[Rfam]
RNA sequence: UCGGCCCCGGUUCACGUGACGCAACCCGCGAGCACGACCCGGUGCC
Numbered sequence: 001u002c003g004g005c006c007c008c009g010g011u012u013c014a015c016g017u018g019a020c021g022c023a024a025c026c027c028g029c030g031a032g033c034a035c036g037a038c039c040c041g042g043u044g045c046c
Base pairs, nucleotide, nucleotide: 003046004045005044007042008041009040010039015036016035017034018033020030021029022028